The record is a 303-nucleotide sequence from Ipomoea nil, which matches "Plant signal recognition particle RNA" in Rfam. The source organism's lineage runs through Eukaryota, Streptophytina, Gunneridae, Pentapetalae and Ipomoea. The family's consensus secondary structure is taken from published work. It is annotated as a non-coding RNA gene. A search with the family's covariance model found it, with a score of 223 bits. Its family is annotated with signal recognition particle, endoplasmic reticulum targeting and SRP-dependent cotranslational protein targeting to membrane, signal sequence recognition in the Gene Ontology.
RNA sequence: GCUGGGCUUGGUAGCGUGAGCCUGUAACCCGAGUGGGAGCAUUAAGAAAGUGGAACAACUGGCCUUGCCCUGAAGGCUGGGCUUGGUGUGCUAUCUUCUGGCCUGCCCGUUCCAAGUGGUGAGUUGACUAAGGAGUCUCAGCGAAGGCAGGGGCUUCUCUGUCUUUAGAUCGGAGGGUGCCGCGUUAGGCUGGCUUCACAGAGCAGCGAAAACCUCCUCCUCUCUGCAGUGGAAGGAUAAUGGGCUGGUGCAUCCUCAGUCCACUAGUGCCUGAUGGGCUGCCUAAAUUGAACCACCAUCUUU
Numbered sequence: 001g002c003u004g005g006g007c008u009u010g011g012u013a014g015c016g017u018g019a020g021c022c023u024g025u026a027a028c029c030c031g032a033g034u035g036g037g038a039g040c041a042u043u044a045a046g047a048a049a050g051u052g053g054a055a056c057a058a059c060u061g062g063c064c065u066u067g068c069c070c071u072g073a074a075g076g077c078u079g080g081g082c083u084u085g086g087u088g089u090g091c092u093a094u095c096u097u098c099u100g101g102c103c104u105g106c107c108c109g110u111u112c113c114a115a116g117u118g119g120u121g122a123g124u125u126g127a128c129u130a131a132g133g134a135g136u137c138u139c140a141g142c143g144a145a146g147g148c149a150g151g152g153g154c155u156u157c158u159c160u161g162u163c164u165u166u167a168g169a170u171c172g173g174a175g176g177g178u179g180c181c182g183c184g185u186u187a188g189g190c191u192g193g194c195u196u197c198a199c200a201g202a203g204c205a206g207c208g209a210a211a212a213c214c215u216c217c218u219c220c221u222c223u224c225u226g227c228a229g230u231g232g233a234a235g236g237a238u239a240a241u242g243g244g245c246u247g248g249u250g251c252a253u254c255c256u257c258a259g260u261c262c263a264c265u266a267g268u269g270c271c272u273g274a275u276g277g278g279c280u281g282c283c284u285a286a287a288u289u290g291a292a293c294c295a296c297c298a299u300c301u302u303u
Base pairs, nucleotide, nucleotide: 001040002039003038004023005022006021007020008019009018010017028037029036030035044302045301046300047299050296051295052294053293056290057289060285061283062282063281066278069277070276074272075271076270077269079262080261081260082259083258085256086255088253089252090251092250093249098248099247100246101245102244103243104242105241107236108235110234111233112232113231114230116227117226118225119224121222122221123220126163127162128161131158132157133156134155135154136153137152138151139150141148142147172217173216174215175214176213183208184207185206190201191200192199